[Rfam]
RNA sequence: CCAGUGACCCCGCAGCGCUGUCGGACCCCCGACCUGGCAGCACUGCGGGGUCACUGC
Dot-bracket structure: .((((.(((((((((.((((((.............)))))).))))))))).)))).